[Rfam]
Background: The record is an 87-nucleotide sequence from Caenorhabditis elegans, which matches "tRNA" in Rfam. The family's RNA type in Rfam is transfer RNA. The literature on the family includes a 1993 paper in Trends Biochem Sci by Hou, "The tertiary structure of tRNA and the development of the genetic code". It is one of the family's seed sequences.

RNA sequence: GCCCGGAUGAACCAUGGCGGUCUGUGGUGCAGACUUCAAAUCUGUAGGCGGUUAGCGCCGCAGUGGUUCGACUCCACCUUUCGGGUG
Numbered sequence: 001g002c003c004c005g006g007a008u009g010a011a012c013c014a015u016g017g018c019g020g021u022c023u024g025u026g027g028u029g030c031a032g033a034c035u036u037c038a039a040a041u042c043u044g045u046a047g048g049c050g051g052u053u054a055g056c057g058c059c060g061c062a063g064u065g066g067u068u069c070g071a072c073u074c075c076a077c078c079u080u081u082c083g084g085g086u087g
Base pairs, nucleotide, nucleotide: 001086002085003084004083005082006081007080012027013026014025015024029045030044031043032042033041062079063077064076065075066074
The organism belongs to Caenorhabditis, within Eukaryota.
The family's consensus secondary structure is taken from published work.